[Rfam]
RNA sequence: AAAAAGGGCUUCUGUCGUGAGGGGCAUAGGUAGAGAAGCUUGAUUGCUCUACAUGUGGAAUCGACAUCAAGAGAUUUCAGAAGCAUAAUUUUUUGGAACUUGGGCAGCUGGUGAUCGUUCGUCCCGGCGCCCAC
Numbered sequence: 001a002a003a004a005a006g007g008g009c010u011u012c013u014g015u016c017g018u019g020a021g022g023g024g025c026a027u028a029g030g031u032a033g034a035g036a037a038g039c040u041u042g043a044u045u046g047c048u049c050u051a052c053a054u055g056u057g058g059a060a061u062c063g064a065c066a067u068c069a070a071g072a073g074a075u076u077u078c079a080g081a082a083g084c085a086u087a088a089u090u091u092u093u094u095g096g097a098a099c100u101u102g103g104g105c106a107g108c109u110g111g112u113g114a115u116c117g118u119u120c121g122u123c124c125c126g127g128c129g130c131c132c133a134c
Stems, first nucleotide, its partner, number of pairs: 008084005013026004027055002030052006037045002056079007102132004107128005113123003